[Rfam]
RNA sequence: AGCUCAAAGUUGGAACCUCCUGGCCCUAGGUCUGGCGGAUUGUAAACUAAAGCUCUCGAGUAGUUCGGCUAGCCUGGUAAAAAAGUUCUCUGGAAAGGGACGACAUAGAGGGUGAAAUCCCCGUCUUUGGCCAGAGCAUAGUCCAACGUUUGCUUGGAAGUGAAGAGUCAGGUUGUUUGGUAUUGCAGCCUAAAGCUGGAGGUAAAUCUCUCCUAAAGCUAAAUAU
Numbered sequence: 001a002g003c004u005c006a007a008a009g010u011u012g013g014a015a016c017c018u019c020c021u022g023g024c025c026c027u028a029g030g031u032c033u034g035g036c037g038g039a040u041u042g043u044a045a046a047c048u049a050a051a052g053c054u055c056u057c058g059a060g061u062a063g064u065u066c067g068g069c070u071a072g073c074c075u076g077g078u079a080a081a082a083a084a085g086u087u088c089u090c091u092g093g094a095a096a097g098g099g100a101c102g103a104c105a106u107a108g109a110g111g112g113u114g115a116a117a118u119c120c121c122c123g124u125c126u127u128u129g130g131c132c133a134g135a136g137c138a139u140a141g142u143c144c145a146a147c148g149u150u151u152g153c154u155u156g157g158a159a160g161u162g163a164a165g166a167g168u169c170a171g172g173u174u175g176u177u178u179g180g181u182a183u184u185g186c187a188g189c190c191u192a193a194a195g196c197u198g199g200a201g202g203u204a205a206a207u208c209u210c211u212c213c214u215a216a217a218g219c220u221a222a223a224u225a226u
Stems, first nucleotide, its partner, number of pairs: 001220004009040003019030004050155004060147002063144001079128003085101001087100004104108001110122003170191007198214002201211002
RNA: Archaeal large subunit ribosomal RNA, nucleotides 462 to 687